[Rfam]
RNA: Small nucleolar RNA SNORD20
RNA sequence: UGGAUAUGAUGACUGAUUACCUGAGAAAUAACUGAUGAAAUCUCAAGAAAAUUCCUCUAGAUAGUCAAGUUCUGAUCCAG
Numbered sequence: 001u002g003g004a005u006a007u008g009a010u011g012a013c014u015g016a017u018u019a020c021c022u023g024a025g026a027a028a029u030a031a032c033u034g035a036u037g038a039a040a041u042c043u044c045a046a047g048a049a050a051a052u053u054c055c056u057c058u059a060g061a062u063a064g065u066c067a068a069g070u071u072c073u074g075a076u077c078c079a080g
Stems, first nucleotide, its partner, number of pairs: 001079004